[Rfam]
Nucleotides: 115
Base pairs, nucleotide, nucleotide: 008107010105011104012103014081015080016079017078018077019076020075021074022073023045024044025043026042027041028040029039030038049071050070052069053068054067084100086098087097088096
Number, partner (000 for none) and nucleotide at each position: 001000u002000a003000g004000a005000a006000a007000u008107a009000u010105u011104u012103c013000a014081g015080a016079a017078u018077c019076a020075g021074g022073c023045c024044g025043g026042g027041g028040c029039a030038g031000u032000g033000a034000c035000c036000u037000g038030u039029u040028g041027c042026c043025c044024c045023g046000c047000u048000a049071a050070c051000u052069c053068g054067g055000u056000c057000g058000u059000a060000c061000a062000u063000c064000c065000a066000g067054c068053c069052g070050g071049u072000u073022g074021c075020c076019u077018g078017a079016u080015u081014c082000c083000u084100u085000g086098c087097a088096u089000u090000g091000a092000a093000g094000c095000g096088a097087u098086g099000u100084a101000c102000g103012g104011a105010g106000u107008u108000u109000a110000u111000a112000g113000a114000g115000c